Shown here is a 64-nucleotide RNA from Peribacillus saganii, a member of the family "Bacillaceae-1 RNA". NCBI's taxonomy places the organism under Bacteria, Bacillati, Bacillota, Caryophanales, Peribacillus.

[Rfam]
RNA sequence: GACCUCGGGGCCGGCUAAGAUCGCCACGUCCUGCGGCGAUGCCGGCACUAGCACGUCGUGUGCU
Dot-bracket structure: .........((((((.......(((.(.....).)))...))))))...(((((.....)))))
Pairs were carried over by alignment from the consensus structure, which is taken from published work.